[Rfam]
Nucleotides: 316
Base pairs, nucleotide, nucleotide: 001316002315003314004313005312006311007310009308012065013064014063015062016034017033018032019031020030021029039061040060041059042058044056071307072306073305074304075303076302077301080299081298082297083296084295086293087292088291091289092288093287094286095285096284097283098282099281100280101279102278103274104273105272106271107270108269109268110267111266112265114261115260122256123255124254125253126252127251128246129245130244131243132242133241134240135239136237137236138235139234140233141231142230143182145180146179147178148177149176150174151173152172153171154169155168156167157166158165159164185228186227187226188225189224190223196219197218198217203212204211205210
Number, partner (000 for none) and nucleotide at each position: 001316c002315g003314c004313g005312c006311g007310g008000g009308u010000a011000g012065g013064g014063c015062c016034g017033g018032g019031g020030g021029g022000c023000u024000c025000g026000c027000c028000c029021u030020c031019c032018c033017c034016c035000g036000u037000a038000c039061c040060c041059c042058g043000a044056g045000a046000u047000c048000g049000g050000g051000c052000g053000c054000a055000a056044c057000g058042c059041g060040g061039g062015g063014g064013c065012c066000a067000g068000u069000a070000a071307c072306c073305c074304g075303c076302c077301g078000u079000c080299c081298g082297c083296u084295c085000g086293c087292c088291g089000c090000u091289a092288c093287c094286c095285g096284c097283c098282a099281c100280g101279g102278g103274u104273c105272c106271c107270a108269c109268g110267c111266c112265g113000a114261c115260c116000g117000a118000g119000g120000a121000c122256c123255c124254c125253c126252g127251g128246c129245c130244c131243g132242c133241g134240g135239g136237g137236c138235c139234g140233g141231c142230g143182g144000u145180g146179g147178c148177g149176g150174a151173g152172c153171c154169c155168c156167c157166u158165c159164c160000g161000g162000a163000g164159g165158g166157a167156g168155g169154g170000c171153g172152g173151c174150u175000a176149c177148c178147g179146c180145c181000u182143u183000u184000a185228c186227c187226g188225g189224g190223g191000g192000a193000a194000g195000c196219g197218g198217u199000c200000a201000g202000g203212c204211c205210c206000g207000g208000a209000a210205g211204g212203g213000a214000g215000c216000a217198g218197c219196c220000u221000a222000a223190c224189c225188c226187c227186g228185g229000a230142c231141g232000c233140c234139c235138g236137g237136c238000g239135u240134u241133c242132g243131c244130g245129g246128g247000g248000c249000c250000a251127c252126c253125g254124g255123g256122g257000u258000g259000a260115g261114g262000c263000a264000a265112c266111g267110g268109c269108g270107u271106g272105g273104g274103g275000g276000u277000g278102c279101c280100c281099g282098u283097g284096g285095c286094g287093g288092g289091u290000a291088c292087g293086g294000c295084g296083g297082g298081u299080g300000a301077c302076g303075g304074c305073g306072g307071g308009g309000g310007c311006c312005g313004c314003g315002c316001g
A member of the RNA family "Archaeal signal recognition particle RNA" from Pyrolobus fumarii, 316 nucleotides long. On this family, see Wild et al., Curr Opin Struct Biol 2002: "Towards the structure of the mammalian signal recognition particle". The family is grouped with related families in Rfam's "SRP clan". The family's RNA type in Rfam is non-coding RNA gene.